[Rfam]
RNA sequence: AUACUUACCUGGAUGGGGUCAAUGGGUGAUCAUUGAGGCCCAUGGCCUAAGGGAAGCAACUUCCAUUGCACUUUGGAAGUUCCUAAGGUCUACCCAAGUGGUGGACCUACAUCAUAAUUUGUGUUAGGGGGGCUUGCGUCCGAGCAGCCCCCGC
Numbered sequence: 001a002u003a004c005u006u007a008c009c010u011g012g013a014u015g016g017g018g019u020c021a022a023u024g025g026g027u028g029a030u031c032a033u034u035g036a037g038g039c040c041c042a043u044g045g046c047c048u049a050a051g052g053g054a055a056g057c058a059a060c061u062u063c064c065a066u067u068g069c070a071c072u073u074u075g076g077a078a079g080u081u082c083c084u085a086a087g088g089u090c091u092a093c094c095c096a097a098g099u100g101g102u103g104g105a106c107c108u109a110c111a112u113c114a115u116a117a118u119u120u121g122u123g124u125u126a127g128g129g130g131g132g133c134u135u136g137c138g139u140c141c142g143a144g145c146a147g148c149c150c151c152c153g154c
Stems, first nucleotide, its partner, number of pairs: 012113004016048006023042005050084003054081001060079005086108006093101002129152004135146003
Rfam assigns this 154-nucleotide RNA from Daucus carota to the family "U1 spliceosomal RNA".
From the family's description: U1 is a small nuclear RNA (snRNA) component of the spliceosome (involved in pre-mRNA splicing).
The source organism's lineage runs through Eukaryota, Tracheophyta, Gunneridae, Apiaceae and Daucus carota.
For this family Rfam cites "Crystal structure of human spliceosomal U1 snRNP at 5.5 A resolution" (Pomeranz Krummel et al., Nature, 2009).